[Rfam]
Record summary
This 353-nucleotide sequence from Solilutibacter pythonis belongs to the Rfam family "transfer-messenger RNA". Pairs were carried over by alignment from the consensus structure, which is taken from published work. It is annotated as a non-coding RNA gene. A search with the family's covariance model found it, with a score of 194 bits. Bacterial tmRNA, also known as 10Sa RNA or SsrA, is named for its dual tRNA and mRNA-like properties. Its role is to liberate the mRNA from a stalled ribosome. To accomplish this part of the tmRNA is used as a reading frame that ends in a translation stop signal. The broken mRNA is replaced in the ribosome by the tmRNA and translation of the tmRNA leads to addition of a proteolysis tag to the incomplete protein enabling recognition by a protease.

RNA sequence: GGGGGUGCACUGGCUUCGACGGGGGUUGCGAAAUCGUCUGGCGCAUGCCGAGGGGGCAGCUUUCCUCGUAAAUCCAGCGGCAAAACAUAUAGUUGCCAACGACGACAACUACGCUCUGGCCGCUUAAGGCCUAGCCCCGAAAGCGCUUGUGCCCGUGCUCGCGCCGUAGGGUCAUCAUCACGGGAUCGGUCUUGGCGGCGACCCGCCAACCAAGGCCAAGACAAAGCGGGUAUGGGUUGCGGUGUGCCUCGCACGUUGUGUUGCCGCCGCCCGAGAUCGAACAACGAGCUAAGCAUGUAGUGCCGGGCAUGGAGUGCCUCCGGACGGCGGUUCGAUUCCGCCCACCUCCACCA
Numbered sequence: 001g002g003g004g005g006u007g008c009a010c011u012g013g014c015u016u017c018g019a020c021g022g023g024g025g026u027u028g029c030g031a032a033a034u035c036g037u038c039u040g041g042c043g044c045a046u047g048c049c050g051a052g053g054g055g056g057c058a059g060c061u062u063u064c065c066u067c068g069u070a071a072a073u074c075c076a077g078c079g080g081c082a083a084a085a086c087a088u089a090u091a092g093u094u095g096c097c098a099a100c101g102a103c104g105a106c107a108a109c110u111a112c113g114c115u116c117u118g119g120c121c122g123c124u125u126a127a128g129g130c131c132u133a134g135c136c137c138c139g140a141a142a143g144c145g146c147u148u149g150u151g152c153c154c155g156u157g158c159u160c161g162c163g164c165c166g167u168a169g170g171g172u173c174a175u176c177a178u179c180a181c182g183g184g185a186u187c188g189g190u191c192u193u194g195g196c197g198g199c200g201a202c203c204c205g206c207c208a209a210c211c212a213a214g215g216c217c218a219a220g221a222c223a224a225a226g227c228g229g230g231u232a233u234g235g236g237u238u239g240c241g242g243u244g245u246g247c248c249u250c251g252c253a254c255g256u257u258g259u260g261u262u263g264c265c266g267c268c269g270c271c272c273g274a275g276a277u278c279g280a281a282c283a284a285c286g287a288g289c290u291a292a293g294c295a296u297g298u299a300g301u302g303c304c305g306g307g308c309a310u311g312g313a314g315u316g317c318c319u320c321c322g323g324a325c326g327g328c329g330g331u332u333c334g335a336u337u338c339c340g341c342c343c344a345c346c347u348c349c350a351c352c353a
Stems, first nucleotide, its partner, number of pairs: 001349007020322007036308002039305005044297005049068005056081002059078003116134003119130003136171003140167001143164004152184006188217008200231001202229002234272004239267005245260003255285003326342005